[Rfam]
Nucleotides: 060
Stems, first nucleotide, its partner, number of pairs: 010052002013049004028045006
Number, partner (000 for none) and nucleotide at each position: 001000g002000a003000a004000u005000a006000u007000c008000a009000a010052c011051c012000a013049u014048u015047c016046a017000c018000u019000a020000c021000g022000g023000a024000u025000c026000g027000u028045u029044c030043g031042g032041c033040a034000c035000g036000u037000a038000c039000c040033u041032g042031c043030c044029g045028a046016u047015g048014a049013a050000g051011g052010g053000a054000u055000a056000g057000a058000u059000a060000a